A member of the RNA family "FMN riboswitch aptamer (RFN element)" from Metabacillus indicus, 146 nucleotides long. The match comes from Rfam's covariance-model search (117 bits). NCBI's taxonomy places the organism under Bacteria, Bacillati, Caryophanales, Bacillaceae, Metabacillus. About the family: The RFN element is a highly conserved domain that is found frequently in the 5'-untranslated regions of prokaryotic mRNAs that encode for flavin mononucleotide (FMN) biosynthesis and transport proteins.
[Rfam]
RNA sequence: GUUUUCCUUCGGGGCAGGGUGAAAUUCCCAACCGGCGGUGAUAAAGCAGAUGCUUUUCAGUCCGUGACCCGGCUGCACAGUGUGCAGGCGGUGGAUCCAGUGAAAUUCUGGAGCCGACAGUAUAGUCUGGAUGGGAGAAGGAACAC
Numbered sequence: 001g002u003u004u005u006c007c008u009u010c011g012g013g014g015c016a017g018g019g020u021g022a023a024a025u026u027c028c029c030a031a032c033c034g035g036c037g038g039u040g041a042u043a044a045a046g047c048a049g050a051u052g053c054u055u056u057u058c059a060g061u062c063c064g065u066g067a068c069c070c071g072g073c074u075g076c077a078c079a080g081u082g083u084g085c086a087g088g089c090g091g092u093g094g095a096u097c098c099a100g101u102g103a104a105a106u107u108c109u110g111g112a113g114c115c116g117a118c119a120g121u122a123u124a125g126u127c128u129g130g131a132u133g134g135g136a137g138a139a140g141g142a143a144c145a146c
Stems, first nucleotide, its partner, number of pairs: 004143007017029003031126002033116002035065004060114002069091002096112005118129003